Overview: A member of the RNA family "Mammalian CPEB3 ribozyme" from Alligator sinensis, 77 nucleotides long. The source organism's lineage runs through Eukaryota, Chordata, Teleostomi, Sauropsida and Alligator. The family's consensus secondary structure is taken from published work. The mammalian CPEB3 ribozyme is a self cleaving RNA located in the second intron of the CPEB3 gene which belongs to a family of genes regulating messenger RNA polyadenylation.
[Rfam]
RNA sequence: AGUUGCACGUUUGAGGCCACAACAGAAGCACUUGCAGUGCAGCCCUGUGAGAGUCCAAUGAAUCUGCAAAUUCUGCU
Numbered sequence: 001a002g003u004u005g006c007a008c009g010u011u012u013g014a015g016g017c018c019a020c021a022a023c024a025g026a027a028g029c030a031c032u033u034g035c036a037g038u039g040c041a042g043c044c045c046u047g048u049g050a051g052a053g054u055c056c057a058a059u060g061a062a063u064c065u066g067c068a069a070a071u072u073c074u075g076c077u
Base pairs, nucleotide, nucleotide: 013045015044016043017042021077023075024074025073026072027071028040029039030038050065051064052063054061055060